[Rfam]
RNA sequence: AAUUUAAUUAAGAAUAUAUUAUAACCGUGUGCAGAAGGCAUAACCAACCUGCACGGGCAUGACGGAACUGCCUAGUUGUCGCAUCAAGGAUACUUGAGUUCGGCAGCUAUUCCUUCAAAGAGAUGCGAGGGGAAAAGAAAGACACUUUCAAUGGAGAAGUCAUGGCAUCGGUAUAAUAUAGGUUGUAAAACAGACUGACCUAACUCUUUCCGCAAUAGACGCCCUAGUUGGGAAUAACCCUGUAGACCACGCCUGCAAAGUGUGAGCCAAUGCAGGGAACGCACAAUAAGGAAAGACCUCUGCUCGGGGGACUGGAGAAAUCCUGUUUGUUAGAAAGUAGUACAAGUAGCUCAAGAGUAGAUAUAUGGCAAGAAUUAUACAUUUAUCUGAACGGUGGGUGAAAGUUGGGGGUACCAAUCCCCUUGGUGCUAGUCAGCGGCAAGAAGUUAUAGGGUAGCUCCCUAUGGCUCAGACUUGUCGUCACCAUGGUUGAAUAACAAUUAUAUUAUAUCUGGUAGGGCGAACAAAAACCCAUACUAUGUUCUUAAUUAAA
Numbered sequence: 001a002a003u004u005u006a007a008u009u010a011a012g013a014a015u016a017u018a019u020u021a022u023a024a025c026c027g028u029g030u031g032c033a034g035a036a037g038g039c040a041u042a043a044c045c046a047a048c049c050u051g052c053a054c055g056g057g058c059a060u061g062a063c064g065g066a067a068c069u070g071c072c073u074a075g076u077u078g079u080c081g082c083a084u085c086a087a088g089g090a091u092a093c094u095u096g097a098g099u100u101c102g103g104c105a106g107c108u109a110u111u112c113c114u115u116c117a118a119a120g121a122g123a124u125g126c127g128a129g130g131g132g133a134a135a136a137g138a139a140a141g142a143c144a145c146u147u148u149c150a151a152u153g154g155a156g157a158a159g160u161c162a163u164g165g166c167a168u169c170g171g172u173a174u175a176a177u178a179u180a181g182g183u184u185g186u187a188a189a190a191c192a193g194a195c196u197g198a199c200c201u202a203a204c205u206c207u208u209u210c211c212g213c214a215a216u217a218g219a220c221g222c223c224c225u226a227g228u229u230g231g232g233a234a235u236a237a238c239c240c241u242g243u244a245g246a247c248c249a250c251g252c253c254u255g256c257a258a259a260g261u262g263u264g265a266g267c268c269a270a271u272g273c274a275g276g277g278a279a280c281g282c283a284c285a286a287u288a289a290g291g292a293a294a295g296a297c298c299u300c301u302g303c304u305c306g307g308g309g310g311a312c313u314g315g316a317g318a319a320a321u322c323c324u325g326u327u328u329g330u331u332a333g334a335a336a337g338u339a340g341u342a343c344a345a346g347u348a349g350c351u352c353a354a355g356a357g358u359a360g361a362u363a364u365a366u367g368g369c370a371a372g373a374a375u376u377a378u379a380c381a382u383u384u385a386u387c388u389g390a391a392c393g394g395u396g397g398g399u400g401a402a403a404g405u406u407g408g409g410g411g412u413a414c415c416a417a418u419c420c421c422c423u424u425g426g427u428g429c430u431a432g433u434c435a436g437c438g439g440c441a442a443g444a445a446g447u448u449a450u451a452g453g454g455u456a457g458c459u460c461c462c463u464a465u466g467g468c469u470c471a472g473a474c475u476u477g478u479c480g481u482c483a484c485c486a487u488g489g490u491u492g493a494a495u496a497a498c499a500a501u502u503a504u505a506u507u508a509u510a511u512c513u514g515g516u517a518g519g520g521c522g523a524a525c526a527a528a529a530a531c532c533c534a535u536a537c538u539a540u541g542u543u544c545u546u547a548a549u550u551a552a553a
Stems, first nucleotide, its partner, number of pairs: 007550001009548001011546002014543001025056005036050003058164006074108006081101001083099001084097005110133007119124001137149005171512001176507001184500001190491001194338003200333005206295006223232003238277006248264005254283003301359005311326002314323002343404001349399005386473004408423004425485003436482001439479001442476002446469001448466007518533003

Notes: This 553-nucleotide RNA sequence belongs to the Rfam family "ROOL RNA". Pairs were carried over by alignment from the consensus structure, which is taken from published work. Rfam's curators write: Firmicutes, Fusobacteria (1 example), Tenericutes (1 example). By type it is a small RNA.